RNA sequence: ACAUGAUGGAAGGCUGAAAUUGAAAAAAAAAACUCAUAGAAUGUGUGUUGUAUAUCAGCUUCUUCUUUCGUAUGUAACGAGACAGGAGUUAAACAACAGCACUACAUAU
Numbered sequence: 001a002c003a004u005g006a007u008g009g010a011a012g013g014c015u016g017a018a019a020u021u022g023a024a025a026a027a028a029a030a031a032a033c034u035c036a037u038a039g040a041a042u043g044u045g046u047g048u049u050g051u052a053u054a055u056c057a058g059c060u061u062c063u064u065c066u067u068u069c070g071u072a073u074g075u076a077a078c079g080a081g082a083c084a085g086g087a088g089u090u091a092a093a094c095a096a097c098a099g100c101a102c103u104a105c106a107u108a109u
Stems, first nucleotide, its partner, number of pairs: 045102006057090006064082004
Dot-bracket structure: ............................................((((((......((((((.((((...........))))..))))))......)))))).......
RNA: Small nucleolar RNA snoR97